[Rfam]
RNA sequence: CCGCAAGGAACUACGAUUAAGGACGCUACGUACUGUAGCAACGCCGAUAUGACCUACAUCGUGUAAG
Numbered sequence: 001c002c003g004c005a006a007g008g009a010a011c012u013a014c015g016a017u018u019a020a021g022g023a024c025g026c027u028a029c030g031u032a033c034u035g036u037a038g039c040a041a042c043g044c045c046g047a048u049a050u051g052a053c054c055u056a057c058a059u060c061g062u063g064u065a066a067g
Stems, first nucleotide, its partner, number of pairs: 014046002017043001025039005053067001055065003

The record is a 67-nucleotide sequence from Peribacillus faecalis, which matches "Bacillaceae-1 RNA" in Rfam. Taxonomically the source falls in Peribacillus (Bacteria, Bacillati, Bacillota, Bacillaceae).